Background
Shown here is a 274-nucleotide part of an RNA from Roseibium suaedae, a member of the family "Bacterial large subunit ribosomal RNA". Taxonomically the source falls in Roseibium (Bacteria, Pseudomonadati, Pseudomonadota, Hyphomicrobiales). Pairs were carried over by alignment from the consensus structure, which is taken from published work. On this family, see Yusupov et al., Science 2001: "Crystal structure of the ribosome at 5.5 A resolution".
RNA sequence: GAUAAAGGGUGUGAGAGACACCCUCGCCGAAAGUCCAAGGGUUCCUGCUCAACGUUAAUCGGAGCAGGGUUAGCCGGCCCCUAAGGCGAGGCCGAAAGGCGUAGUCGAUGGGAAUGCAGUUAAUAUUCUGCAGCUUGUGGGUAGUGACGGAUGCCGUGUGUUGUAUCCCCUUACUGGAUUGGGGGUGCAGCGAAGGUGUUCCAGGAAAUAGCUCCCACGUAUAAACCGUACCCGAAACCGACACAGGUGGACUGGUAGAGCAUACCAAGGCGCU
Numbered sequence: 001g002a003u004a005a006a007g008g009g010u011g012u013g014a015g016a017g018a019c020a021c022c023c024u025c026g027c028c029g030a031a032a033g034u035c036c037a038a039g040g041g042u043u044c045c046u047g048c049u050c051a052a053c054g055u056u057a058a059u060c061g062g063a064g065c066a067g068g069g070u071u072a073g074c075c076g077g078c079c080c081c082u083a084a085g086g087c088g089a090g091g092c093c094g095a096a097a098g099g100c101g102u103a104g105u106c107g108a109u110g111g112g113a114a115u116g117c118a119g120u121u122a123a124u125a126u127u128c129u130g131c132a133g134c135u136u137g138u139g140g141g142u143a144g145u146g147a148c149g150g151a152u153g154c155c156g157u158g159u160g161u162u163g164u165a166u167c168c169c170c171u172u173a174c175u176g177g178a179u180u181g182g183g184g185g186u187g188c189a190g191c192g193a194a195g196g197u198g199u200u201c202c203a204g205g206a207a208a209u210a211g212c213u214c215c216c217a218c219g220u221a222u223a224a225a226c227c228g229u230a231c232c233c234g235a236a237a238c239c240g241a242c243a244c245a246g247g248u249g250g251a252c253u254g255g256u257a258g259a260g261c262a263u264a265c266c267a268a269g270g271c272g273c274u
Stems, first nucleotide, its partner, number of pairs: 006024006025272004033252004039232002044068006053061002075228003080111002085106003089102001091100003115132005135224001136219002140216002143213003149201004160191011238247002254266004